The family of this 91-nucleotide RNA from Singulisphaera acidiphila is "SAH (S-adenosyl-L-homocysteine) riboswitch aptamer".
[Rfam]
RNA sequence: UCCAUUGAGGGGCGCUGCGACGGUACGCAUAGGCGUUCCUGCCAGGCUCGAUGGGAUGGAUCAUACUACUGUGCAACGGCGCCCGUUCAUC
Numbered sequence: 001u002c003c004a005u006u007g008a009g010g011g012g013c014g015c016u017g018c019g020a021c022g023g024u025a026c027g028c029a030u031a032g033g034c035g036u037u038c039c040u041g042c043c044a045g046g047c048u049c050g051a052u053g054g055g056a057u058g059g060a061u062c063a064u065a066c067u068a069c070u071g072u073g074c075a076a077c078g079g080c081g082c083c084c085g086u087u088c089a090u091c
Stems, first nucleotide, its partner, number of pairs: 002054007021041003025037001
The organism belongs to Singulisphaera acidiphila, within Bacteria.